[Rfam]
RNA sequence: CAAUUUAGUUGUGACAAAUUCUCAUUUAGUUAUGACAAACUCAUACCUAAUUGCUCAAAAUUACUUGUUAUCAUAAGCCCAACUACAUCGUUGAUAUUGGAAAACAAAAGACAACUACUAUACUAUGUGAACAAUAAAUA
Numbered sequence: 001c002a003a004u005u006u007a008g009u010u011g012u013g014a015c016a017a018a019u020u021c022u023c024a025u026u027u028a029g030u031u032a033u034g035a036c037a038a039a040c041u042c043a044u045a046c047c048u049a050a051u052u053g054c055u056c057a058a059a060a061u062u063a064c065u066u067g068u069u070a071u072c073a074u075a076a077g078c079c080c081a082a083c084u085a086c087a088u089c090g091u092u093g094a095u096a097u098u099g100g101a102a103a104a105c106a107a108a109a110g111a112c113a114a115c116u117a118c119u120a121u122a123c124u125a126u127g128u129g130a131a132c133a134a135u136a137a138a139u140a
Base pairs, nucleotide, nucleotide: 004138005137006136007135009133012130014128015127018126019125024121025120027117028116029115030114031113
Shown here is a 140-nucleotide RNA sequence from Populus tomentosa, a member of the family "MIR480 microRNA precursor family". Taxonomically the source falls in Populus (Eukaryota, Spermatophyta, eudicotyledons, Salicaceae). Pairs were carried over by alignment from the consensus structure, which was predicted with WAR. It scores 114 bits against the family's covariance model.